[Rfam]
Rfam assigns this 103-nucleotide RNA sequence from Vibrio ostreae to the family "Tryptophan operon leader". A search with the family's covariance model found it, with a score of 62 bits. Rfam's curators write: At least 6 amino acid operons are known to be regulated by attenuation. In each a leader sequence of 150-200 bp is found upstream of the first gene in the operon. Pairs were carried over by alignment from the consensus structure, which is taken from published work. The organism belongs to Vibrio, within Bacteria. The literature on the family includes a 1982 paper in Annu Rev Genet by Kolter and Yanofsky, "Attenuation in amino acid biosynthetic operons". Gene Ontology terms of the family: tryptophan biosynthetic process and transcriptional attenuation by ribosome.
RNA sequence: CUAAACUGGUGGCACACUUGGACAAGUUCUUAGUGGGCUCGCGUAUACCUGUCUGACAGGAAACGUCUUUCAAGAAGCCCGCUGACUUAGCGGGCUUUUUAUU
Numbered sequence: 001c002u003a004a005a006c007u008g009g010u011g012g013c014a015c016a017c018u019u020g021g022a023c024a025a026g027u028u029c030u031u032a033g034u035g036g037g038c039u040c041g042c043g044u045a046u047a048c049c050u051g052u053c054u055g056a057c058a059g060g061a062a063a064c065g066u067c068u069u070u071c072a073a074g075a076a077g078c079c080c081g082c083u084g085a086c087u088u089a090g091c092g093g094g095c096u097u098u099u100u101a102u103u
Base pairs, nucleotide, nucleotide: 009042010041011040012039015035016034017033018032020030021029022028076096077095078094079093080092081091082090